[Rfam]
RNA sequence: AACCUGGUUGAUCCUGCCAGUAGUCAUAUGCUUAGCUCAAAGAUUAAGCCAUGCAUGUCUAAGUAUAAACACGUUUGUACUGUGAAACUGCAGAUGGCUCAUUACAACAGUUACAGUUUAUUUGACAAUUGAGCAUUACCGGAUACCCGUAGUAACUCUAGGGCUAAUACGUGACAAAACCUCUCUCGAGGCGUGCAUAUUAGCUUAAAACCAAUUCUGGUUGCAACCAUAAUAUUCUGUCGGAUCGCGUUGACCUCGUCAGCGACAUGUCAUUCAAGUUUCUGACCUAUCAGCUCGUGACGGUAGACUAUUGGCCUACCGUGGCUUUGACGGGUAACGGGGAAUCAGGGUUCGAUUCCGGAGAGGCAGCCUGAGAAACGGCUACCACAUCCACGGAAGGCAGCAGGUGCGCAAAUUACCCAAUCCUGACACAGGGAAGUAGUGACAAGCAAUAACGAUGAUCAGCUUACAGUUGAAAUUCGGAAUGAGAACAAUGUAAAAGCCUUAUCGACCACCAAGUGGAGGGCAAGCCUGGUGCCAGCAGCCGCGUAAUACCAGCUCCACUAGCGUAUACUAAAGUUGCUG
Numbered sequence: 001a002a003c004c005u006g007g008u009u010g011a012u013c014c015u016g017c018c019a020g021u022a023g024u025c026a027u028a029u030g031c032u033u034a035g036c037u038c039a040a041a042g043a044u045u046a047a048g049c050c051a052u053g054c055a056u057g058u059c060u061a062a063g064u065a066u067a068a069a070c071a072c073g074u075u076u077g078u079a080c081u082g083u084g085a086a087a088c089u090g091c092a093g094a095u096g097g098c099u100c101a102u103u104a105c106a107a108c109a110g111u112u113a114c115a116g117u118u119u120a121u122u123u124g125a126c127a128a129u130u131g132a133g134c135a136u137u138a139c140c141g142g143a144u145a146c147c148c149g150u151a152g153u154a155a156c157u158c159u160a161g162g163g164c165u166a167a168u169a170c171g172u173g174a175c176a177a178a179a180c181c182u183c184u185c186u187c188g189a190g191g192c193g194u195g196c197a198u199a200u201u202a203g204c205u206u207a208a209a210a211c212c213a214a215u216u217c218u219g220g221u222u223g224c225a226a227c228c229a230u231a232a233u234a235u236u237c238u239g240u241c242g243g244a245u246c247g248c249g250u251u252g253a254c255c256u257c258g259u260c261a262g263c264g265a266c267a268u269g270u271c272a273u274u275c276a277a278g279u280u281u282c283u284g285a286c287c288u289a290u291c292a293g294c295u296c297g298u299g300a301c302g303g304u305a306g307a308c309u310a311u312u313g314g315c316c317u318a319c320c321g322u323g324g325c326u327u328u329g330a331c332g333g334g335u336a337a338c339g340g341g342g343a344a345u346c347a348g349g350g351u352u353c354g355a356u357u358c359c360g361g362a363g364a365g366g367c368a369g370c371c372u373g374a375g376a377a378a379c380g381g382c383u384a385c386c387a388c389a390u391c392c393a394c395g396g397a398a399g400g401c402a403g404c405a406g407g408u409g410c411g412c413a414a415a416u417u418a419c420c421c422a423a424u425c426c427u428g429a430c431a432c433a434g435g436g437a438a439g440u441a442g443u444g445a446c447a448a449g450c451a452a453u454a455a456c457g458a459u460g461a462u463c464a465g466c467u468u469a470c471a472g473u474u475g476a477a478a479u480u481c482g483g484a485a486u487g488a489g490a491a492c493a494a495u496g497u498a499a500a501a502g503c504c505u506u507a508u509c510g511a512c513c514a515c516c517a518a519g520u521g522g523a524g525g526g527c528a529a530g531c532c533u534g535g536u537g538c539c540a541g542c543a544g545c546c547g548c549g550u551a552a553u554a555c556c557a558g559c560u561c562c563a564c565u566a567g568c569g570u571a572u573a574c575u576a577a578a579g580u581u582g583c584u585g
Stems, first nucleotide, its partner, number of pairs: 004020005022575003026572007035450003041443001042410001048408003052405003057091002062089003069083002098363003108284003113279002117277002123272004140171002147163002150160003182191003197235006211220003245265004251261004286334003293325003300322007338360004342353004365386002368383003388399001390397002416441001418440002424436005456482003459478001462476006489509002491506001493505001519564006532558004541548002
RNA: Eukaryotic small subunit ribosomal RNA, nucleotides 1 to 585